Overview
A member of the RNA family "Small nucleolar RNA SNORD25" from Ipomoea nil, 85 nucleotides long. The literature on the family includes a 2001 paper in Nucleic Acids Res by Qu et al., "Identification of 10 novel snoRNA gene clusters from Arabidopsis thaliana". Rfam links the family to the GO terms RNA processing and nucleolus.

[Rfam]
RNA sequence: AACAAUGAUGAUGAGUUAUACAGACCUGUAAUGAUUUGCAAGCAUGAUUGCAAUCUAUUUUGAACAUCUAAGGGACUGAGUUGUU
Number, nucleotide and partner (000 for none) at each position: 001a000002a084003c083004a082005a081006u080007g000008a000009u000010g000011a000012u000013g000014a000015g000016u000017u000018a000019u000020a000021c000022a000023g000024a000025c000026c000027u000028g000029u000030a000031a000032u000033g000034a000035u000036u000037u000038g000039c000040a000041a000042g000043c000044a000045u000046g000047a000048u000049u000050g000051c000052a000053a000054u000055c000056u000057a000058u000059u000060u000061u000062g000063a000064a000065c000066a000067u000068c000069u000070a000071a000072g000073g000074g000075a000076c000077u000078g000079a000080g006081u005082u004083g003084u002085u000